[Rfam]
RNA: A. fumigatus snoRNA Afu_263
RNA sequence: CUUUUUUGUGAUGAGCAACAAAUUUAAAGCAUAGUUCACCUGAAAGUCUCGGACUUCAUGAACGACAAACCUUUACCAUCUUUCACCUUUGUCUGAUA
Numbered sequence: 001c002u003u004u005u006u007u008g009u010g011a012u013g014a015g016c017a018a019c020a021a022a023u024u025u026a027a028a029g030c031a032u033a034g035u036u037c038a039c040c041u042g043a044a045a046g047u048c049u050c051g052g053a054c055u056u057c058a059u060g061a062a063c064g065a066c067a068a069a070c071c072u073u074u075a076c077c078a079u080c081u082u083u084c085a086c087c088u089u090u091g092u093c094u095g096a097u098a
Stems, first nucleotide, its partner, number of pairs: 006021003009017002034063005044056004